MIR7504 microRNA precursor family: a 123-nucleotide RNA from Gossypium anomalum. Its family is annotated with miRNA-mediated post-transcriptional gene silencing and RISC complex in the Gene Ontology.
RNA sequence: AAUAGGAGGAUGACAAAUCAUAUUUUUCCUCCAGAUUUUUAGCUUUUUCCUCUUGAAAAAAUUCAAAUCCAACUAAAAAUGUUGAAAAUCAGGAGGAAAAAUAUGAUUUGUCAUUCUCCUAAG
Numbered sequence: 001a002a003u004a005g006g007a008g009g010a011u012g013a014c015a016a017a018u019c020a021u022a023u024u025u026u027u028c029c030u031c032c033a034g035a036u037u038u039u040u041a042g043c044u045u046u047u048u049c050c051u052c053u054u055g056a057a058a059a060a061a062u063u064c065a066a067a068u069c070c071a072a073c074u075a076a077a078a079a080u081g082u083u084g085a086a087a088a089u090c091a092g093g094a095g096g097a098a099a100a101a102u103a104u105g106a107u108u109u110g111u112c113a114u115u116c117u118c119c120u121a122a123g
Base pairs, nucleotide, nucleotide: 003121004120005119006118007117008116009115010114011113012112013111014110015109016108017107018106019105020104021103022102023101024100025099026098027097029095030094031093032092034090035089036088037087038086039085041083042082045079046078047077048076